RNA sequence: AUCUAUCUUCGGGGCAGGGUGAAAAUCCCGACCGGCGGUGAGGAGCCAGUGCUCUAAGCCCGCGAGCCUGAUUGAAUAGCGAGGCAUAUUCCCGGCAAGCUGAUGCCAUCCAAACUGUGGGGGAAAUCUCCAGUGAAUGGAUUGAUCGGCUCGGUGAAUAGCCACAGCUGGACAAUCGCAUAUAGGCAGAUUUGGUGUGAAUCCAAAGCCGACAGUAUAGUCUGGAUGGGAGAAGAUGGAG
Numbered sequence: 001a002u003c004u005a006u007c008u009u010c011g012g013g014g015c016a017g018g019g020u021g022a023a024a025a026u027c028c029c030g031a032c033c034g035g036c037g038g039u040g041a042g043g044a045g046c047c048a049g050u051g052c053u054c055u056a057a058g059c060c061c062g063c064g065a066g067c068c069u070g071a072u073u074g075a076a077u078a079g080c081g082a083g084g085c086a087u088a089u090u091c092c093c094g095g096c097a098a099g100c101u102g103a104u105g106c107c108a109u110c111c112a113a114a115c116u117g118u119g120g121g122g123g124a125a126a127u128c129u130c131c132a133g134u135g136a137a138u139g140g141a142u143u144g145a146u147c148g149g150c151u152c153g154g155u156g157a158a159u160a161g162c163c164a165c166a167g168c169u170g171g172a173c174a175a176u177c178g179c180a181u182a183u184a185g186g187c188a189g190a191u192u193u194g195g196u197g198u199g200a201a202u203c204c205a206a207a208g209c210c211g212a213c214a215g216u217a218u219a220g221u222c223u224g225g226a227u228g229g230g231a232g233a234a235g236a237u238g239g240a241g
Stems, first nucleotide, its partner, number of pairs: 003239008017029003031221002033211002035063004058209002066187005191207005213224003
Background: This 241-nucleotide sequence from Bacillus sp. V3-13 belongs to the Rfam family "FMN riboswitch aptamer (RFN element)". Lineage of the source: Bacteria > Bacillota > Bacilli > Bacillaceae > Bacillus.